About this RNA: Rfam assigns this 234-nucleotide RNA from Ectobacillus ponti to the family "T-box leader". The organism belongs to Ectobacillus, within Bacteria. A search with the family's covariance model found it, with a score of 122 bits.
Nucleotides: 234
Base pairs, nucleotide, nucleotide: 007104008103015099016098017097018096025087026086027085029083030082039075040074041073050072051071052070053069054068055067107130108129109128110127111126112125132145133144134143183198184197185196186195187194188193203231204230205229206228214227215226216225217224218223
Number, partner (000 for none) and nucleotide at each position: 001000a002000a003000a004000a005000a006000g007104u008103u009000g010000a011000u012000g013000a014000c015099g016098a017097g018096a019000a020000g021000a022000g023000u024000a025087c026086a027085g028000g029083a030082u031000g032000g033000a034000a035000c036000u037000g038000g039075u040074u041073c042000c043000a044000c045000a046000g047000a048000g049000a050072g051071u052070c053069g054068g055067c056000g057000u058000u059000u060000g061000c062000u063000g064000a065000g066000a067055g068054c069053c070052g071051a072050u073041g074040a075039a076000g077000c078000a079000g080000c081000c082030a083029u084000a085027c086026u087025g088000g089000a090000a091000g092000a093000u094000c095000a096018u097017c098016u099015c100000c101000g102000a103008g104007a105000c106000g107130u108129g109128c110127a111126g112125c113000c114000g115000a116000a117000g118000a119000g120000a121000g122000u123000a124000a125112g126111c127110u128109g129108u130107g131000c132145c133144g134143g135000a136000u137000u138000g139000u140000c141000c142000g143134c144133c145132g146000u147000u148000a149000g150000c151000c152000g153000g154000a155000c156000c157000g158000c159000g160000u161000a162000u163000g164000a165000u166000u167000g168000u169000a170000c171000g172000u173000a174000a175000g176000u177000c178000g179000a180000g181000a182000g183198c184197c185196g186195c187194a188193c189000g190000c191000u192000u193188g194187u195186g196185c197184g198183g199000a200000a201000g202000u203231a204230g205229g206228g207000u208000g209000g210000u211000a212000u213000c214227g215226c216225g217224a218223g219000c220000a221000a222000g223218c224217u225216c226215g227214u228206c229205c230204c231203u232000a233000a234000c